[Rfam]
RNA sequence: AACUUAUCAAGAAAGGUGGAGGGAUUUGGCCCGAUGAAACCUUAGCAACCGGAUGUAUUUAUCAAGGUGCUAAUUCCAACCUUAAAAAGGGAAAGAUGAGUG
Numbered sequence: 001a002a003c004u005u006a007u008c009a010a011g012a013a014a015g016g017u018g019g020a021g022g023g024a025u026u027u028g029g030c031c032c033g034a035u036g037a038a039a040c041c042u043u044a045g046c047a048a049c050c051g052g053a054u055g056u057a058u059u060u061a062u063c064a065a066g067g068u069g070c071u072a073a074u075u076c077c078a079a080c081c082u083u084a085a086a087a088a089g090g091g092a093a094a095g096a097u098g099a100g101u102g
Base pairs, nucleotide, nucleotide: 002101003100004099005098006097007096008095013043014042015041016040017039021032022031023030026079027078028077029076044071045070046069047068049067050066051063052062075094080091081090082089083088